[Rfam]
RNA sequence: UCCUGUAUCGAAAGUGAUCAUGGCGUCCUUGUAGCCAGGUCAUUGAUAGUACAGGAAGAAUAACCUGCGGGCCUUUCCCGUGUUCAAAGGAUCCUCCGUUCCUCUUGAACCCUGGCGCUCUCAGACA
Numbered sequence: 001u002c003c004u005g006u007a008u009c010g011a012a013a014g015u016g017a018u019c020a021u022g023g024c025g026u027c028c029u030u031g032u033a034g035c036c037a038g039g040u041c042a043u044u045g046a047u048a049g050u051a052c053a054g055g056a057a058g059a060a061u062a063a064c065c066u067g068c069g070g071g072c073c074u075u076u077c078c079c080g081u082g083u084u085c086a087a088a089g090g091a092u093c094c095u096c097c098g099u100u101c102c103u104c105u106u107g108a109a110c111c112c113u114g115g116c117g118c119u120c121u122c123a124g125a126c127a
Base pairs, nucleotide, nucleotide: 001056002055003054004053005052006051007050008049013044014043015042016041017040018039019038022036023035024034064124066123067122069120070119071118072117082110083109084108085107086106088103089102090101091100